[Rfam]
RNA sequence: UGAUUCGUUCGACCUGACACAACAUUCUGCUGCAAUGUUGUGCGACCUGCAGUGUCGGUCGAACGGAUCA
Numbered sequence: 001u002g003a004u005u006c007g008u009u010c011g012a013c014c015u016g017a018c019a020c021a022a023c024a025u026u027c028u029g030c031u032g033c034a035a036u037g038u039u040g041u042g043c044g045a046c047c048u049g050c051a052g053u054g055u056c057g058g059u060c061g062a063a064c065g066g067a068u069c070a
Stems, first nucleotide, its partner, number of pairs: 001070007010061005021039006044056003
Shown here is a 70-nucleotide RNA sequence from Dothideomycetidae sp. 11243, a member of the family "bZIP non canonical Hac1/Xbp1 intron". The match comes from Rfam's covariance-model search (59 bits). For this family Rfam cites "Conserved RNA structures in the non-canonical Hac1/Xbp1 intron" (Hooks and Griffiths-Jones, RNA Biol, 2011). The family's RNA type in Rfam is small RNA. Rfam's curators write: bZIP intron RNA is a non-canonical intron that was first reported in HAC1 gene in yeast and XBP1 gene in Metazoa.